[Rfam]
RNA sequence: GGCUGGUGAUGGAUAAGAAUUGUCCGUACCAUCUGAGAUAUCUUCAUUGAUUCUUUGAUGAGGUUUAUACCUAUUGCUUCUGAGGCCA
Numbered sequence: 001g002g003c004u005g006g007u008g009a010u011g012g013a014u015a016a017g018a019a020u021u022g023u024c025c026g027u028a029c030c031a032u033c034u035g036a037g038a039u040a041u042c043u044u045c046a047u048u049g050a051u052u053c054u055u056u057g058a059u060g061a062g063g064u065u066u067a068u069a070c071c072u073a074u075u076g077c078u079u080c081u082g083a084g085g086c087c088a
Base pairs, nucleotide, nucleotide: 001087002086003085004084
A member of the RNA family "small nucleolar RNA snoR117" from Protea cynaroides, 88 nucleotides long. On this family, see Chen and Wu, Nucleic Acids Res 2009: "Mining small RNA sequencing data: a new approach to identify small nucleolar RNAs in Arabidopsis". It scores 62 bits against the family's covariance model. The organism belongs to Protea, within Eukaryota. Gene Ontology terms of the family: nucleolus and RNA processing. The family's consensus secondary structure was predicted with RNAalifold.